[Rfam]
RNA sequence: GGAAACCUGAAAUGUUCGAUAACUUCUGUUAUUUUGAACCUACAAUACUUUAAACGGGACUCUUAUUAUCUCUGUAAUAUGUCAAGCCCUCAUUUAUGCAGGGGAAGGCAGAAAAGCAGAUGCGGACACCCACCUAGCGGAUGGCUAGGAGUCAAAAUACAGAAACCGGCAUUUUGGGGAAUAC
Dot-bracket structure: .(...((((((((((.((...........((((.(((.((...............(((..(((.....(((.(.(.....((....((((..........))))...))....).).)))...)))..)))................))..))).)))).......))))))))))))...)..

Rfam assigns this 184-nucleotide RNA sequence from Dorea sp. CAG:105 to the family "6S / SsrS RNA". By type it is a non-coding RNA gene. E. coli 6S RNA was the first non coding RNA to be sequenced, but its function was unknown until recently. It consists of 184 nucleotides that fold into an extended hairpin structure with a large single-stranded internal bulge. The 6S RNA specifically associates with RNA polymerase holoenzyme containing the sigma70 specificity factor. This interaction represses expression from a sigma70-dependent promoter during stationary phase. 6S RNA homologs have recently been identified in most bacterial genomes. Pairs were carried over by alignment from the consensus structure, which is taken from published work. Taxonomically the source falls in Dorea (Bacteria, Bacillati, Lachnospirales, Lachnospiraceae).